The record is a 72-nucleotide RNA, which matches "Actino-pnp RNA" in Rfam.
By type it is a cis-regulatory element.
Rfam's curators put it in the seed alignment.

[Rfam]
RNA sequence: AAUGGUCCUCGGUAGUGGUUUCCGGAGAUUUCUUUCGUAGAAAAGUUCCGUGAACUUCGAUCGAAGAUUCAU
Numbered sequence: 001a002a003u004g005g006u007c008c009u010c011g012g013u014a015g016u017g018g019u020u021u022c023c024g025g026a027g028a029u030u031u032c033u034u035u036c037g038u039a040g041a042a043a044a045g046u047u048c049c050g051u052g053a054a055c056u057u058c059g060a061u062c063g064a065a066g067a068u069u070c071a072u
Stems, first nucleotide, its partner, number of pairs: 001072001004069004009064005017056005023050004028046001029044002